[Rfam]
RNA sequence: AGACGGACCUCUGGAGAGUUCCUCCCAUGGAGGACACCCACGGGGAACCGGCGCAUGCCGGGACAAAAUCUCUCAGGUUUAAGGACAGAGGAAAGGCA
Numbered sequence: 001a002g003a004c005g006g007a008c009c010u011c012u013g014g015a016g017a018g019u020u021c022c023u024c025c026c027a028u029g030g031a032g033g034a035c036a037c038c039c040a041c042g043g044g045g046a047a048c049c050g051g052c053g054c055a056u057g058c059c060g061g062g063a064c065a066a067a068a069u070c071u072c073u074c075a076g077g078u079u080u081a082a083g084g085a086c087a088g089a090g091g092a093a094a095g096g097c098a
Stems, first nucleotide, its partner, number of pairs: 008091006020034004036078003040073001043072003050064001